SAM riboswitch aptamer (S box leader): an 86-nucleotide RNA from Planococcaceae bacterium Storch 2/2-2. NCBI's taxonomy places the organism under Bacteria, Bacillati, Bacillota, Caryophanales, Caryophanaceae.

[Rfam]
RNA sequence: UUCUUAUGAAGAGUCGUGGAAGGAUCAGGCCUUAUGAAGCGACAGCAACCGGCGAAGCACGGUGCUACACCCUGGAUGAAUAAGGA
Numbered sequence: 001u002u003c004u005u006a007u008g009a010a011g012a013g014u015c016g017u018g019g020a021a022g023g024a025u026c027a028g029g030c031c032u033u034a035u036g037a038a039g040c041g042a043c044a045g046c047a048a049c050c051g052g053c054g055a056a057g058c059a060c061g062g063u064g065c066u067a068c069a070c071c072c073u074g075g076a077u078g079a080a081u082a083a084g085g086a
Stems, first nucleotide, its partner, number of pairs: 001086007013043005021032003026074004044066004049062002051058001070078001
Dot-bracket structure: (((((((.....(((((...(((..[[[[)))......)))))((((.(((......)..))))))...(]]]]...).)))))))

The match comes from Rfam's covariance-model search (58 bits).